[Rfam]
RNA sequence: GUCGCUGUAACUGAGCAAUCAGGGACAUGCAAAUUUAUUUGCAAAAUAUUAUGGGAUGCUACAAUGUGGAGAAGAAUAUUCAAUAUCCAAAAGUUUAAUUCCCGUCUAUCGCAAGGUGUCAGUUUACUGAACAUGUACUGUUGGAAAGAGAACAUGUUGAAGUAAUAAUGAACUGCAAACCGCCUCAGGCUGGAAACAGAGCAGGGUCAGUGGUCGCUGAUGUUUACGGUGCGAAGAUUACGGUUGAGUUAGGCAAGAU
Numbered sequence: 001g002u003c004g005c006u007g008u009a010a011c012u013g014a015g016c017a018a019u020c021a022g023g024g025a026c027a028u029g030c031a032a033a034u035u036u037a038u039u040u041g042c043a044a045a046a047u048a049u050u051a052u053g054g055g056a057u058g059c060u061a062c063a064a065u066g067u068g069g070a071g072a073a074g075a076a077u078a079u080u081c082a083a084u085a086u087c088c089a090a091a092a093g094u095u096u097a098a099u100u101c102c103c104g105u106c107u108a109u110c111g112c113a114a115g116g117u118g119u120c121a122g123u124u125u126a127c128u129g130a131a132c133a134u135g136u137a138c139u140g141u142u143g144g145a146a147a148g149a150g151a152a153c154a155u156g157u158u159g160a161a162g163u164a165a166u167a168a169u170g171a172a173c174u175g176c177a178a179a180c181c182g183c184c185u186c187a188g189g190c191u192g193g194a195a196a197c198a199g200a201g202c203a204g205g206g207u208c209a210g211u212g213g214u215c216g217c218u219g220a221u222g223u224u225u226a227c228g229g230u231g232c233g234a235a236g237a238u239u240a241c242g243g244u245u246g247a248g249u250u251a252g253g254c255a256a257g258a259u
Stems, first nucleotide, its partner, number of pairs: 011053001014050001085259003093254009102243004106236002109234005116225001117222007126163003130158007138150002141148002166170001172214005182207004190199003
RNA: Protozoan signal recognition particle RNA